[Rfam]
RNA sequence: AAGUGACAUGAUGGUACACCAUCUUUCGGGGCUGACCUGAAAUGGAGAAAAUUCUAAAUGCUGAUCACUU
Numbered sequence: 001a002a003g004u005g006a007c008a009u010g011a012u013g014g015u016a017c018a019c020c021a022u023c024u025u026u027c028g029g030g031g032c033u034g035a036c037c038u039g040a041a042a043u044g045g046a047g048a049a050a051a052u053u054c055u056a057a058a059u060g061c062u063g064a065u066c067a068c069u070u
Base pairs, nucleotide, nucleotide: 001070002069003068004067005066006065
Shown here is a 70-nucleotide sequence from Eudromia elegans, a member of the family "Small nucleolar RNA SNORD2".
Rfam classes the family as a C/D-box small nucleolar RNA.
The match comes from Rfam's covariance-model search (82 bits).
Its family is annotated with RNA processing and nucleolus in the Gene Ontology.